Shown here is a 77-nucleotide RNA from Nannospalax galili, a member of the family "mir-1912 microRNA precursor family". Lineage of the source: Eukaryota > Chordata > Gnathostomata > Spalacidae > Nannospalax.
[Rfam]
RNA sequence: CUCUAGGAUAUGCUCAUUGCAUGGGCUGUUUUUAUUUUUAUUCAAUACCCAGAAUGUACAAUGUGAAUAUAGUAGAG
Dot-bracket structure: (((((..((((.(.(((((.(((..(((..(.(...........).)..)))..))).))))).).))))..)))))